Rfam assigns this 159-nucleotide sequence from Jeotgalibaca porci to the family "Enterococcus sRNA B11". Rfam classes the family as a small RNA. For this family Rfam cites "Genome-wide identification of small RNAs in the opportunistic pathogen Enterococcus faecalis V583" (Shioya et al., PLoS One, 2011). The family's consensus secondary structure was predicted with RNAfold. The source organism's lineage runs through Bacteria, Bacillati, Bacilli, Lactobacillales and Jeotgalibaca. A search with the family's covariance model found it, with a score of 118 bits.
RNA sequence: GGCAACUUGGUGCUGUUCAUGAAAGACUUGAUUUCGUUAGUUAUCGCACCACUUCUUGUGGGACUAAUAUUAGUAUUGGUUGAUCAUUGGUUAGAUGAUUAGCGGUAACAAGCAAGUUGCCACCUAACCCACACGUCUGUCGUCGCAGCAGACGCAAAA
Numbered sequence: 001g002g003c004a005a006c007u008u009g010g011u012g013c014u015g016u017u018c019a020u021g022a023a024a025g026a027c028u029u030g031a032u033u034u035c036g037u038u039a040g041u042u043a044u045c046g047c048a049c050c051a052c053u054u055c056u057u058g059u060g061g062g063a064c065u066a067a068u069a070u071u072a073g074u075a076u077u078g079g080u081u082g083a084u085c086a087u088u089g090g091u092u093a094g095a096u097g098a099u100u101a102g103c104g105g106u107a108a109c110a111a112g113c114a115a116g117u118u119g120c121c122a123c124c125u126a127a128c129c130c131a132c133a134c135g136u137c138u139g140u141c142g143u144c145g146c147a148g149c150a151g152a153c154g155c156a157a158a159a
Stems, first nucleotide, its partner, number of pairs: 001121008011023001013021001038111001040109008049061004064079006080094006134154005